The family of this 102-nucleotide RNA sequence from Scopulibacillus darangshiensis is "TPP riboswitch aptamer (THI element)". NCBI's taxonomy places the organism under Bacteria, Bacillati, Bacilli, Sporolactobacillaceae, Scopulibacillus.

RNA sequence: UUUGUCCACUAGGGGUGCCGUUUGGCUGAGAUAAGGUGAAUCCUUGAUCCCUUGGAACCUGAUCUGGAUCAUUCCAGCGUAGGAAAGUGGUGUUUUUCCGGC
Dot-bracket structure: .....(((((((((.((((....)))......((((.....)))))..)))).....((((..((((......))))..))))..)))))............